[Rfam]
RNA sequence: GCCCUCGUGGCGCAAUGGAUACCGCGUUGGACUUCUAAUCCAAAGGUUGUGGGAUCGAUCCCCAUCGGGGGUG
Numbered sequence: 001g002c003c004c005u006c007g008u009g010g011c012g013c014a015a016u017g018g019a020u021a022c023c024g025c026g027u028u029g030g031a032c033u034u035c036u037a038a039u040c041c042a043a044a045g046g047u048u049g050u051g052g053g054a055u056c057g058a059u060c061c062c063c064a065u066c067g068g069g070g071g072u073g
Stems, first nucleotide, its partner, number of pairs: 001072007010025003027043005049065005